About this RNA:
A member of the RNA family "mir-2807 microRNA precursor family" from Bombyx mori, 84 nucleotides long. Rfam links the family to the GO terms miRNA-mediated post-transcriptional gene silencing and RISC complex. NCBI's taxonomy places the organism under Eukaryota, Eumetazoa, Altocrustacea, Pterygota, Bombyx.
RNA sequence: UUAACUCAUAUUUGUAUGGAGUUCGAACGUUUGUCUGCGUUUGCCGCUAGGGGCGCUGUUCCAACUGCAUACAAACUUGAGUGA
Numbered sequence: 001u002u003a004a005c006u007c008a009u010a011u012u013u014g015u016a017u018g019g020a021g022u023u024c025g026a027a028c029g030u031u032u033g034u035c036u037g038c039g040u041u042u043g044c045c046g047c048u049a050g051g052g053g054c055g056c057u058g059u060u061c062c063a064a065c066u067g068c069a070u071a072c073a074a075a076c077u078u079g080a081g082u083g084a
Stems, first nucleotide, its partner, number of pairs: 008078001011075006018068001020066004025061005034052003039047002